[Rfam]
RNA sequence: CCAGGGGGCCGGGCAGCCGCGUCAUCUCACGAUGCCGAGGAAAGUCCGGGCUCCACGAAACAAGGGUGGCGGGUAACGCCCGCCGGGUCGGGCAACCGAUCAAGGGAAAGUGCCACAGAGAGCAGACCGCCGCUCCGGUCUUCGGACCCAGGCGGCAAGGGUGAAAGGGUGCGGCAAGAGCGCACCGCGCGACCGGCAACGGAAGCGGCACGGCAAACCCCACCCGGAGCAAGAUCGAAUAGGGACUGCGCGCCCAGCAAUGGGCAGGCCGGUUUCGGGCCAGCAGUCCGGGUUGAUUGCUUGAGCGUUCCGGCAACGGUCCGCCUAGAGGAAUGGCUGCCAGCGGCGAUACGGUCCACUCGUGGGAUACCGUCGGCGCUACAGAACCCGGCUUACAGGCCCCCUGGCACU
Numbered sequence: 001c002c003a004g005g006g007g008g009c010c011g012g013g014c015a016g017c018c019g020c021g022u023c024a025u026c027u028c029a030c031g032a033u034g035c036c037g038a039g040g041a042a043a044g045u046c047c048g049g050g051c052u053c054c055a056c057g058a059a060a061c062a063a064g065g066g067u068g069g070c071g072g073g074u075a076a077c078g079c080c081c082g083c084c085g086g087g088u089c090g091g092g093c094a095a096c097c098g099a100u101c102a103a104g105g106g107a108a109a110g111u112g113c114c115a116c117a118g119a120g121a122g123c124a125g126a127c128c129g130c131c132g133c134u135c136c137g138g139u140c141u142u143c144g145g146a147c148c149c150a151g152g153c154g155g156c157a158a159g160g161g162u163g164a165a166a167g168g169g170u171g172c173g174g175c176a177a178g179a180g181c182g183c184a185c186c187g188c189g190c191g192a193c194c195g196g197c198a199a200c201g202g203a204a205g206c207g208g209c210a211c212g213g214c215a216a217a218c219c220c221c222a223c224c225c226g227g228a229g230c231a232a233g234a235u236c237g238a239a240u241a242g243g244g245a246c247u248g249c250g251c252g253c254c255c256a257g258c259a260a261u262g263g264g265c266a267g268g269c270c271g272g273u274u275u276c277g278g279g280c281c282a283g284c285a286g287u288c289c290g291g292g293u294u295g296a297u298u299g300c301u302u303g304a305g306c307g308u309u310c311c312g313g314c315a316a317c318g319g320u321c322c323g324c325c326u327a328g329a330g331g332a333a334u335g336g337c338u339g340c341c342a343g344c345g346g347c348g349a350u351a352c353g354g355u356c357c358a359c360u361c362g363u364g365g366g367a368u369a370c371c372g373u374c375g376g377c378g379c380u381a382c383a384g385a386a387c388c389c390g391g392c393u394u395a396c397a398g399g400c401c402c403c404c405u406g407g408c409a410c411u
Base pairs, nucleotide, nucleotide: 001407002406003405004404005403006402007401008400009399010398011396012341013340014339015338016337017336018335020037021036023034024033025032026031042394043393044392046391047390048389049388050387051229052228053227054226060275062273064225065224066223067222068221069083070082071081072080073079084104086101087100088099089098090097091096105220106219110218111217112214113213114212127160128159129156130155131154132153133152134151137148138147139146140145168186169185170184171183172182173181187209188207189206190205193202194201195200233298234297235296236295243289244288245287246286247285248284267281268280269279270278305324306323307322310319311318312317

This 411-nucleotide RNA sequence from Novosphingobium aromaticivorans belongs to the Rfam family "Bacterial RNase P class A". Rfam's curators put it in the seed alignment.